Overview: Group II catalytic intron D1-D4-4: a 129-nucleotide sequence from a Syntrophomonadaceae bacterium. The base pairs follow the family's consensus structure. For this family Rfam cites "The ins and outs of group II introns" (Bonen and Vogel, Trends Genet, 2001). The source organism's lineage runs through Bacteria, Bacillati, Bacillota, Eubacteriales and Syntrophomonadaceae. From the family's description: Group II introns are found in rRNA, tRNA and mRNA of organelles in fungi, plants and protists, and also in mRNA in bacteria.
[Rfam]
RNA sequence: CAGCGGGGGACAGACCCGCCGGAGGAAAAGUCAGCACUCUGUAACUUGGGCAGCGGGAAACCAACAUCCUGAAGUCUGCCGACAAAGCCGUUGUAAGAACGGUGAGUGAGCUACCGGGCCGCAACGCAA
Numbered sequence: 001c002a003g004c005g006g007g008g009g010a011c012a013g014a015c016c017c018g019c020c021g022g023a024g025g026a027a028a029a030g031u032c033a034g035c036a037c038u039c040u041g042u043a044a045c046u047u048g049g050g051c052a053g054c055g056g057g058a059a060a061c062c063a064a065c066a067u068c069c070u071g072a073a074g075u076c077u078g079c080c081g082a083c084a085a086a087g088c089c090g091u092u093g094u095a096a097g098a099a100c101g102g103u104g105a106g107u108g109a110g111c112u113a114c115c116g117g118g119c120c121g122c123a124a125c126g127c128a129a
Stems, first nucleotide, its partner, number of pairs: 020041005049080005054071001055062002087103006106122003